[Rfam]
RNA: mir-7563 microRNA precursor family
Organism: Ameiurus melas
RNA sequence: ACUGCGUACUUACCUGCUAUAUAGUAGGCGAGAUACAUGUAUUUUGCCUAAUGUAUAGUAGGUAAGUACACGGUUU
Numbered sequence: 001a002c003u004g005c006g007u008a009c010u011u012a013c014c015u016g017c018u019a020u021a022u023a024g025u026a027g028g029c030g031a032g033a034u035a036c037a038u039g040u041a042u043u044u045u046g047c048c049u050a051a052u053g054u055a056u057a058g059u060a061g062g063u064a065a066g067u068a069c070a071c072g073g074u075u076u
Base pairs, nucleotide, nucleotide: 001074002073003072004071006069007068008067009066010065011064012063013062014061015060017058018057019056020055021054022053023052025050026049027048029046030045031044033042034041035040
Dot-bracket structure: ((((.((((((((((.(((((((.(((.(((.(((....))).))).))).))))))).)))))))))).))))..